[Rfam]
RNA: Small nucleolar RNA SNORD59
Organism: Leptobrachium leishanense
RNA sequence: CCUACAAUGAAGAGUAACUUGCUCGACUUUCGUUCUUCUGAAAUUGCUGAAGCAAAUUAUUGCAUCUGAGAAGG
Numbered sequence: 001c002c003u004a005c006a007a008u009g010a011a012g013a014g015u016a017a018c019u020u021g022c023u024c025g026a027c028u029u030u031c032g033u034u035c036u037u038c039u040g041a042a043a044u045u046g047c048u049g050a051a052g053c054a055a056a057u058u059a060u061u062g063c064a065u066c067u068g069a070g071a072a073g074g
Stems, first nucleotide, its partner, number of pairs: 001074003005070001
Dot-bracket structure: (((.(................................................................).)))